[Rfam]
RNA sequence: AUGGAGAAAGCCGAAAAUCCACAAGAGAGUAGGCA
Number, nucleotide and partner (000 for none) at each position: 001a000002u021003g020004g019005a018006g000007a000008a000009a000010g034011c033012c032013g000014a000015a000016a000017a000018u005019c004020c003021a002022c000023a000024a000025g000026a000027g000028a000029g000030u000031a000032g012033g011034c010035a000
Rfam assigns this 35-nucleotide RNA sequence to the family "DUF805b RNA". The family is grouped with related families in Rfam's "DUF805 clan".